This 69-nucleotide sequence from Nezara viridula belongs to the Rfam family "mir-1175 microRNA precursor family". Lineage of the source: Eukaryota > Metazoa > Dicondylia > Prosorrhyncha > Nezara.
RNA sequence: UGAGUUAAGUGGAGAAGUAGUUUCUGCACUUUUAAUAUAAGUGAGAUUCAACUCCUCCUACUUAGUUCA
Numbered sequence: 001u002g003a004g005u006u007a008a009g010u011g012g013a014g015a016a017g018u019a020g021u022u023u024c025u026g027c028a029c030u031u032u033u034a035a036u037a038u039a040a041g042u043g044a045g046a047u048u049c050a051a052c053u054c055c056u057c058c059u060a061c062u063u064a065g066u067u068c069a
Stems, first nucleotide, its partner, number of pairs: 007063003011058004017053001018051001023046002027043005